[Rfam]
RNA sequence: UGAGAAAAGAAGAAGCACCCGCUUCUCACCUGAUUUGACGCGUCUUUUAGCAGUUGGCAGGUUUACGUGAACUUUUUGUUUAUUUACUUAUGUUUCGUAAAGUGUGGGUGUAUUCAUCCGCACUUUUUUGUUUGU
Numbered sequence: 001u002g003a004g005a006a007a008a009g010a011a012g013a014a015g016c017a018c019c020c021g022c023u024u025c026u027c028a029c030c031u032g033a034u035u036u037g038a039c040g041c042g043u044c045u046u047u048u049a050g051c052a053g054u055u056g057g058c059a060g061g062u063u064u065a066c067g068u069g070a071a072c073u074u075u076u077u078g079u080u081u082a083u084u085u086a087c088u089u090a091u092g093u094u095u096c097g098u099a100a101a102g103u104g105u106g107g108g109u110g111u112a113u114u115c116a117u118c119c120g121c122a123c124u125u126u127u128u129u130g131u132u133u134g135u
Base pairs, nucleotide, nucleotide: 011026012025013024014023015022016021028062029061030060037055038054039053040051041050103122104121105120106119107118108117109116110115
RNA: Ribosomal protein L20 leader
Organism: Neobacillus cucumis